[Rfam]
Notes:
The record is a 164-nucleotide RNA sequence from Erinaceus europaeus, which matches "U1 spliceosomal RNA" in Rfam. The organism belongs to Erinaceus, within Eukaryota. The family has 100 seed sequences and 40,184 matches in Rfam 15.1.
RNA sequence: AUACUUACCUGGCAGGGGAUAUACCAUGAUCAUGAAGGUGGUUUUCCCAAGGUGAGGCUUAUCCAUUGCACUUUGGAUGUGCUGACCCCUGCAAUUUCCCCAAACGUGGGAAACUAGACUGCAUAAUUUAUGGUAGUGGGGGACUGCGUUUGCACUCUCGUCUG
Number, nucleotide and partner (000 for none) at each position: 001a000002u000003a000004c000005u000006u000007a000008c000009c000010u000011g000012g122013c121014a120015g119016g048017g047018g046019a045020u000021a043022u000023a042024c041025c040026a039027u038028g000029a000030u000031c000032a000033u000034g000035a000036a000037g000038g027039u026040g025041g024042u023043u021044u000045u019046c018047c017048c016049a090050a000051g088052g087053u000054g086055a000056g083057g082058c081059u000060u079061a078062u077063c076064c075065a000066u000067u000068g000069c000070a000071c000072u000073u000074u000075g064076g063077a062078u061079g060080u000081g058082c057083u056084g000085a000086c054087c052088c051089c000090u049091g000092c117093a000094a115095u113096u112097u111098c000099c109100c108101c000102a000103a000104a000105c000106g000107u000108g100109g099110g000111a097112a096113a095114c000115u094116a000117g092118a000119c015120u014121g013122c012123a000124u000125a000126a000127u000128u000129u000130a000131u000132g000133g000134u000135a000136g000137u000138g163139g162140g161141g000142g159143a158144c000145u000146g155147c000148g153149u000150u000151u000152g000153c148154a000155c146156u000157c000158u143159c142160g000161u140162c139163u138164g000